[Rfam]
RNA sequence: AGAUCUUUCUGGGCAAAUUCUCAUAUAGUCAUGAUAGAUUCACACUUCACUACUCGGAACAACUACUUAUCUUAAGCCCCGAUUACAUCAUAUGUUAAUUUGACAUAAGCACAUGAAGAAU
Numbered sequence: 001a002g003a004u005c006u007u008u009c010u011g012g013g014c015a016a017a018u019u020c021u022c023a024u025a026u027a028g029u030c031a032u033g034a035u036a037g038a039u040u041c042a043c044a045c046u047u048c049a050c051u052a053c054u055c056g057g058a059a060c061a062a063c064u065a066c067u068u069a070u071c072u073u074a075a076g077c078c079c080c081g082a083u084u085a086c087a088u089c090a091u092a093u094g095u096u097a098a099u100u101u102g103a104c105a106u107a108a109g110c111a112c113a114u115g116a117a118g119a120a121u
Base pairs, nucleotide, nucleotide: 003121004120006118007116008115011112013110014109017106018105022102023101026097027096028095029094
This 121-nucleotide RNA sequence from Salix dunnii belongs to the Rfam family "MIR480 microRNA precursor family". Gene Ontology terms of the family: miRNA-mediated post-transcriptional gene silencing and RISC complex. A reference for the family is Lu et al. (2005), "Novel and mechanical stress-responsive MicroRNAs in Populus trichocarpa that are absent from Arabidopsis", Plant Cell. Taxonomically the source falls in Salix (Eukaryota, Viridiplantae, Streptophytina, rosids).